[Rfam]
RNA sequence: CAGCAGGAUGGAGAGGACGGCGAGUGGCCAGAUGAGGUAGCUGAGCCAUUGCAACCAGCUUGGAAUGUGGCUCAUGAGCUGGGGAAUCCAGUCAUUUAACCGGGUGAAAAGCCACCAGAAGGCCCCCCCCAUCAGCACAAUAUUCAUGAGUAGGGGAAGAAUGACGAAACGCCGGAUGCCCGGUAGUGAGAUCAAACGCCAUCCGGCAAGAAAAUAGUGUAUUCCGCUGCGAACCUGGCCUGCGGUGUUGCCGUAAGGCGGUUUUUCGAAAGACAUAGUGACAAUAUACUCAGUCAUUUGUUUGUUGAGGCAUCAUAUCGGGAUGAUCUUAUGCUGACUAGCCCGCAUUUGGAUGAAAAAACAGCAAAAAAGUGCGUUGUAUCUAUCUUUCUUGUCAUAAAGUACCGCGCAGGCUUGCACUUGUGUACUCAGGCAAAUAGAGU
Numbered sequence: 001c002a003g004c005a006g007g008a009u010g011g012a013g014a015g016g017a018c019g020g021c022g023a024g025u026g027g028c029c030a031g032a033u034g035a036g037g038u039a040g041c042u043g044a045g046c047c048a049u050u051g052c053a054a055c056c057a058g059c060u061u062g063g064a065a066u067g068u069g070g071c072u073c074a075u076g077a078g079c080u081g082g083g084g085a086a087u088c089c090a091g092u093c094a095u096u097u098a099a100c101c102g103g104g105u106g107a108a109a110a111g112c113c114a115c116c117a118g119a120a121g122g123c124c125c126c127c128c129c130c131a132u133c134a135g136c137a138c139a140a141u142a143u144u145c146a147u148g149a150g151u152a153g154g155g156g157a158a159g160a161a162u163g164a165c166g167a168a169a170c171g172c173c174g175g176a177u178g179c180c181c182g183g184u185a186g187u188g189a190g191a192u193c194a195a196a197c198g199c200c201a202u203c204c205g206g207c208a209a210g211a212a213a214a215u216a217g218u219g220u221a222u223u224c225c226g227c228u229g230c231g232a233a234c235c236u237g238g239c240c241u242g243c244g245g246u247g248u249u250g251c252c253g254u255a256a257g258g259c260g261g262u263u264u265u266u267c268g269a270a271a272g273a274c275a276u277a278g279u280g281a282c283a284a285u286a287u288a289c290u291c292a293g294u295c296a297u298u299u300g301u302u303u304g305u306u307g308a309g310g311c312a313u314c315a316u317a318u319c320g321g322g323a324u325g326a327u328c329u330u331a332u333g334c335u336g337a338c339u340a341g342c343c344c345g346c347a348u349u350u351g352g353a354u355g356a357a358a359a360a361a362c363a364g365c366a367a368a369a370a371a372g373u374g375c376g377u378u379g380u381a382u383c384u385a386u387c388u389u390u391c392u393u394g395u396c397a398u399a400a401a402g403u404a405c406c407g408c409g410c411a412g413g414c415u416u417g418c419a420c421u422u423g424u425g426u427a428c429u430c431a432g433g434c435a436a437a438u439a440g441a442g443u
Stems, first nucleotide, its partner, number of pairs: 007133005016128001019126002022123001023042003027038003043073007055063003074095004081088002103116004135410002138407001141404004146398004150392001152390005158384002161380006169373002171207008181198002186193001214254002217251003221248002224245004229239002260328004265323003270318001275316002278313003282309001286305003291300003332366005339360001343352003413434005419426002
Dot-bracket structure: ......(((((....(..((.((((.(((......))).)))(((((((.....(((...)))...)))))))((((...((....))...)))).......((((......))))......).)).)))))).((.(..((((.(((((.(((((.((.((((((..((((((((((..((...(......)...)).))))))))......((.(((.((.((((.((.......))..)))).))))).)).....((((.(((..(....((.(((.(...(((..(((....)))..)))...).))).)).)..))).))))...(((((..(...(((....))).......).))))).....)).))))))..)).))))).)..))))..))))..).))..(((((.((....))...))))).........
Soft rot Enterobacteriaceae Rev 42 5'UTR: a 443-nucleotide RNA sequence from Pectobacterium carotovorum. From bacteria cultured under starvation conditions. Rfam links the family to the GO term cellular response to starvation. Lineage of the source: Bacteria > Pseudomonadota > Enterobacterales > Pectobacteriaceae > Pectobacterium carotovorum subsp. carotovorum. It is one of the family's seed sequences.